[Rfam]
RNA sequence: AGAGAUAGCCGACUAACUAGUUGCGAGAUCGGAGUCUCAGUCUAGUUCA
Numbered sequence: 001a002g003a004g005a006u007a008g009c010c011g012a013c014u015a016a017c018u019a020g021u022u023g024c025g026a027g028a029u030c031g032g033a034g035u036c037u038c039a040g041u042c043u044a045g046u047u048c049a
Stems, first nucleotide, its partner, number of pairs: 002037001004035001009032002013027001016046005
Exoribonuclease-resistant RNA (xrRNA) plant-infecting virus (class 3): a 49-nucleotide RNA from Polerovirus CPCSV. A reference for the family is Gezelle et al. (2024), "The pseudoknot structure of a viral RNA reveals a conserved mechanism for programmed exoribonuclease resistance", bioRxiv [Preprint]. Exoribonuclease-resistant RNA (xrRNA) plant-infecting virus (class 3) is a ncRNA that was reported in Plant viruses.